Description: Shown here is a 137-nucleotide sequence from Paenibacillus roseus, a member of the family "Group II catalytic intron D1-D4-4". The organism belongs to Paenibacillus, within Bacteria.

[Rfam]
RNA sequence: UAGUCGGUGAAAGUCCGACCGGGGGAAAAGACGAAACUCCCGUAGCCUGAGAGGCAUCGCGGAACGAAAGUGAACCGAUGGAGCCCUCUGACAAACAUUCGAAAGGAAUGUCGGCAAAACUCCAGGUUGUAACGUAC
Numbered sequence: 001u002a003g004u005c006g007g008u009g010a011a012a013g014u015c016c017g018a019c020c021g022g023g024g025g026a027a028a029a030g031a032c033g034a035a036a037c038u039c040c041c042g043u044a045g046c047c048u049g050a051g052a053g054g055c056a057u058c059g060c061g062g063a064a065c066g067a068a069a070g071u072g073a074a075c076c077g078a079u080g081g082a083g084c085c086c087u088c089u090g091a092c093a094a095a096c097a098u099u100c101g102a103a104a105g106g107a108a109u110g111u112c113g114g115c116a117a118a119a120c121u122c123c124a125g126g127u128u129g130u131a132a133c134g135u136a137c
Stems, first nucleotide, its partner, number of pairs: 020042005050089005055080005064071002095111006114130003
Its family is annotated with Group II intron splicing in the Gene Ontology.
A search with the family's covariance model found it, with a score of 107 bits.
The pairing is the family consensus, mapped onto this sequence.